[Rfam]
RNA sequence: UAGACAGAUUAUUGUAUUCGACUGUAUUCACGAUAUGUAUUUGUAAAUACAGUAACGUAAAUAGCGCAAUUCAUGGUCUAUUCAGUUGUUUGUAAACGGAAAGUGAAUCAAUUAACAUAAUAAACUUCU
Numbered sequence: 001u002a003g004a005c006a007g008a009u010u011a012u013u014g015u016a017u018u019c020g021a022c023u024g025u026a027u028u029c030a031c032g033a034u035a036u037g038u039a040u041u042u043g044u045a046a047a048u049a050c051a052g053u054a055a056c057g058u059a060a061a062u063a064g065c066g067c068a069a070u071u072c073a074u075g076g077u078c079u080a081u082u083c084a085g086u087u088g089u090u091u092g093u094a095a096a097c098g099g100a101a102a103g104u105g106a107a108u109c110a111a112u113u114a115a116c117a118u119a120a121u122a123a124a125c126u127u128c129u
Stems, first nucleotide, its partner, number of pairs: 003127002009123007017115002020113002023110002026108006034098001036096001037089003041085003

Source information
This 129-nucleotide RNA sequence from Nicotiana sylvestris belongs to the Rfam family "MIR6152 microRNA precursor family". NCBI's taxonomy places the organism under Eukaryota, Tracheophyta, eudicotyledons, asterids, Nicotiana. Rfam 15.1 lists 5,807 matches to the family in 3 species. A search with the family's covariance model found it, with a score of 61 bits.